Overview
Rfam assigns this 115-nucleotide RNA from Trifolium pratense to the family "MIR2593 microRNA precursor family". Pairs were carried over by alignment from the consensus structure, which was predicted with RNAalifold. The source organism's lineage runs through Eukaryota, Viridiplantae, Pentapetalae, Hologalegina and Trifolium. Rfam links the family to the GO terms miRNA-mediated post-transcriptional gene silencing and RISC complex.
RNA sequence: UUAUAAGAGAAGUUUUCCUUUUUAGAUUCAUUGUAAAACUAAUGUAUCUGGGCAAUAUUAUAGUCUAGAUACAUUAGUUUUACAAUGAAUCUAAAAAGCCAAACUUCUCUUAUAA
Numbered sequence: 001u002u003a004u005a006a007g008a009g010a011a012g013u014u015u016u017c018c019u020u021u022u023u024a025g026a027u028u029c030a031u032u033g034u035a036a037a038a039c040u041a042a043u044g045u046a047u048c049u050g051g052g053c054a055a056u057a058u059u060a061u062a063g064u065c066u067a068g069a070u071a072c073a074u075u076a077g078u079u080u081u082a083c084a085a086u087g088a089a090u091c092u093a094a095a096a097a098g099c100c101a102a103a104c105u106u107c108u109c110u111u112a113u114a115a
Base pairs, nucleotide, nucleotide: 002114003113004112005111006110007109009107010106011105012104013103015101018098019097020096021095022094023093024092025091027089028088029087030086031085032084033083034082035081036080037079038078039077040076041075042074043073044072049067050066051065052064